[Rfam]
RNA: Betaproteobacteria-1 RNA
RNA sequence: CUGUAAGGUGGACGCGCAGAAGCUGCACCAGCGCCUUAUGGUUUAAGACAGACUGGGGGUAAGUGGUUGUAACACUGCAAAUGGGCGGCGAAGUCAGCACCCAUACCACGCCAAGGCUGACGGGU
Numbered sequence: 001c002u003g004u005a006a007g008g009u010g011g012a013c014g015c016g017c018a019g020a021a022g023c024u025g026c027a028c029c030a031g032c033g034c035c036u037u038a039u040g041g042u043u044u045a046a047g048a049c050a051g052a053c054u055g056g057g058g059g060u061a062a063g064u065g066g067u068u069g070u071a072a073c074a075c076u077g078c079a080a081a082u083g084g085g086c087g088g089c090g091a092a093g094u095c096a097g098c099a100c101c102c103a104u105a106c107c108a109c110g111c112c113a114a115g116g117c118u119g120a121c122g123g124g125u
Stems, first nucleotide, its partner, number of pairs: 001041010028056004049077003064108004081104005093121006